[Rfam]
RNA sequence: UCACUCCUUAUCUUGGGUUGCGCUACUAUUCAAUGAAUGUAUAGUGAGAACAGUACUGCUAACUCCACCACAACACAUAAGCAUCCCUGGGGUUUAUAUCCCACUGAGGCGCAACUUUUGGAACC
Number, nucleotide and partner (000 for none) at each position: 001u000002c000003a000004c000005u000006c000007c017008u016009u015010a000011u000012c000013u000014u000015g009016g008017g007018u000019u000020g059021c058022g057023c000024u000025a054026c053027u052028a000029u050030u049031c048032a000033a000034u000035g000036a000037a045038u044039g000040u000041a000042u000043a000044g038045u037046g000047a000048g031049a030050a029051c000052a027053g026054u025055a000056c000057u022058g021059c020060u000061a000062a000063c000064u000065c000066c000067a000068c000069c000070a000071c000072a000073a000074c000075a000076c000077a000078u000079a000080a000081g112082c111083a000084u109085c108086c000087c000088u103089g102090g101091g100092g099093u098094u000095u000096a000097u000098a093099u092100c091101c090102c089103a088104c000105u000106g000107a000108g085109g084110c000111g082112c081113a000114a000115c000116u000117u000118u000119u000120g000121g000122a000123a000124c000125c000

Notes:
Rfam assigns this 125-nucleotide RNA sequence from Phrynocephalus forsythii to the family "U4atac minor spliceosomal RNA". The family's consensus secondary structure is taken from published work. Rfam classes the family as a spliceosomal small nuclear RNA. The match comes from Rfam's covariance-model search (86 bits). The family is grouped with related families in Rfam's "U4 clan".